[Rfam]
Nucleotides: 083
Base pairs, nucleotide, nucleotide: 001082002081003080004079
Number, partner (000 for none) and nucleotide at each position: 001082g002081g003080c004079c005000u006000g007000u008000g009000a010000u011000g012000g013000a014000a015000a016000a017000a018000u019000a020000a021000u022000u023000g024000u025000c026000c027000g028000u029000a030000c031000c032000a033000u034000c035000u036000g037000a038000a039000g040000a041000u042000a043000u044000c045000u046000g047000u048000c049000u050000u051000u052000u053000g054000a055000u056000g057000c058000a059000u060000c061000u062000c063000u064000u065000u066000a067000c068000c069000u070000a071000g072000a073000u074000u075000c076000u077000g078000a079004g080003g081002c082001c083000u
A member of the RNA family "small nucleolar RNA snoR117" from Ricinus communis, 83 nucleotides long. It is annotated as a C/D-box small nucleolar RNA. The family has 6 seed sequences and 419 matches in Rfam 15.1.